The family of this 144-nucleotide RNA from Litchfieldia salsa is "FMN riboswitch aptamer (RFN element)".
The base pairs follow the family's consensus structure, which is taken from published work.
[Rfam]
RNA sequence: UAUUUCCUUCGGGGGUAGGGUGAAAUUCCCAACCGGCGGUGAUCAUUUUUAUGUGUAGCCCGCGACCCAUAUAGCUUUUUGCUAUAUGGCUGACUUGGUGUGAUUCCAAGGCCGACAGUAAAGUCUGGAUGGGAGAAGGAAAAU
Numbered sequence: 001u002a003u004u005u006c007c008u009u010c011g012g013g014g015g016u017a018g019g020g021u022g023a024a025a026u027u028c029c030c031a032a033c034c035g036g037c038g039g040u041g042a043u044c045a046u047u048u049u050u051a052u053g054u055g056u057a058g059c060c061c062g063c064g065a066c067c068c069a070u071a072u073a074g075c076u077u078u079u080u081g082c083u084a085u086a087u088g089g090c091u092g093a094c095u096u097g098g099u100g101u102g103a104u105u106c107c108a109a110g111g112c113c114g115a116c117a118g119u120a121a122a123g124u125c126u127g128g129a130u131g132g133g134a135g136a137a138g139g140a141a142a143a144u
Stems, first nucleotide, its partner, number of pairs: 003142008018030003032124002034114002036063004058112002067089002094110005116127003
Dot-bracket structure: ..((((((((.......(((.......))).[[((((((..................[[))))...((...................))....(((((.......)))))]])).(((....]]))).......))))))))..